[Rfam]
RNA: Small nucleolar RNA SNORD113/SNORD114 family
RNA sequence: UGGAUCGAUGAUGACUACUGGUGGCGUAUGAGUCUUUUGCGAUGAAUACGUGUCUAGAACUCUGAGGUCCGU
Numbered sequence: 001u002g003g004a005u006c007g008a009u010g011a012u013g014a015c016u017a018c019u020g021g022u023g024g025c026g027u028a029u030g031a032g033u034c035u036u037u038u039g040c041g042a043u044g045a046a047u048a049c050g051u052g053u054c055u056a057g058a059a060c061u062c063u064g065a066g067g068u069c070c071g072u
Stems, first nucleotide, its partner, number of pairs: 002070005